[Rfam]
RNA sequence: AAUUGGCAAGUAUGAUGAUUCAAUUAGAUGUGUGAAUGGAAAUUAAUCCAUAUUGAACUCAACAUUUUGAGGCAUUUUUAAUUGUCUGACUUGCGUGUU
Numbered sequence: 001a002a003u004u005g006g007c008a009a010g011u012a013u014g015a016u017g018a019u020u021c022a023a024u025u026a027g028a029u030g031u032g033u034g035a036a037u038g039g040a041a042a043u044u045a046a047u048c049c050a051u052a053u054u055g056a057a058c059u060c061a062a063c064a065u066u067u068u069g070a071g072g073c074a075u076u077u078u079u080a081a082u083u084g085u086c087u088g089a090c091u092u093g094c095g096u097g098u099u
Stems, first nucleotide, its partner, number of pairs: 001099003006094005
The record is a 99-nucleotide RNA from Populus trichocarpa, which matches "Small nucleolar RNA Z266" in Rfam. The literature on the family includes a 2003 paper in Nucleic Acids Res by Chen et al., "The high diversity of snoRNAs in plants: identification and comparative study of 120 snoRNA genes from Oryza sativa". Pairs were carried over by alignment from the consensus structure, which was predicted with PFOLD. Lineage of the source: Eukaryota > Viridiplantae > Pentapetalae > rosids > Populus.